The family of this 72-nucleotide RNA sequence from Vulcanibacillus modesticaldus is "RAGATH-18 RNA".
Actinobacteria, Firmicutes, Fusobacteria, Thermotogae (1 example).
NCBI's taxonomy places the organism under Bacteria, Bacillota, Bacilli, Bacillaceae, Vulcanibacillus.
RNA sequence: CCUUCGGAGAGUUAUAUCAAGCGAAAGUAAUAGUCAGCUUUGACUAUGAAAUCGGACUCAAUGAACAAGGAA
Dot-bracket structure: ((((....(((((........(((.....(((.(((....))).)))....)))))))).......))))..
Numbered sequence: 001c002c003u004u005c006g007g008a009g010a011g012u013u014a015u016a017u018c019a020a021g022c023g024a025a026a027g028u029a030a031u032a033g034u035c036a037g038c039u040u041u042g043a044c045u046a047u048g049a050a051a052u053c054g055g056a057c058u059c060a061a062u063g064a065a066c067a068a069g070g071a072a
Stems, first nucleotide, its partner, number of pairs: 001070004009059005022054003030047003034043003